[Rfam]
RNA: Glm Y RNA activator of glmS mRNA
Organism: Gibbsiella quercinecans
RNA sequence: AGUUGCUCAUUCAACUUUUUAUGAUGGUCCGGCAUAGAUCGGCAACAUACCUCAUAAGCCCAGAAUGAUGCCAAAGAAAUGGUGCCUAUCGUCCAACCAAACCGAUAACAGCCGCGCAAGCGCUUUAUCAAGCAUCGGGCGACACGUGGAGUGAGGCACCGCCUG
Numbered sequence: 001a002g003u004u005g006c007u008c009a010u011u012c013a014a015c016u017u018u019u020u021a022u023g024a025u026g027g028u029c030c031g032g033c034a035u036a037g038a039u040c041g042g043c044a045a046c047a048u049a050c051c052u053c054a055u056a057a058g059c060c061c062a063g064a065a066u067g068a069u070g071c072c073a074a075a076g077a078a079a080u081g082g083u084g085c086c087u088a089u090c091g092u093c094c095a096a097c098c099a100a101a102c103c104g105a106u107a108a109c110a111g112c113c114g115c116g117c118a119a120g121c122g123c124u125u126u127a128u129c130a131a132g133c134a135u136c137g138g139g140c141g142a143c144a145c146g147u148g149g150a151g152u153g154a155g156g157c158a159c160c161g162c163c164u165g
Base pairs, nucleotide, nucleotide: 005071006070007068008067009066010065011064012063019057020056021055022054023053024052026051027050028049081160082159083158084157085156086155087154090141091140092139093138094137104129105128106127107126108125143153144152145151
Dot-bracket structure: ....((((((((......((((((.(((....................))))))))).....)))))).)).........(((((((..(((((.........(((((................))))).......))))).(((.....)))))))))).....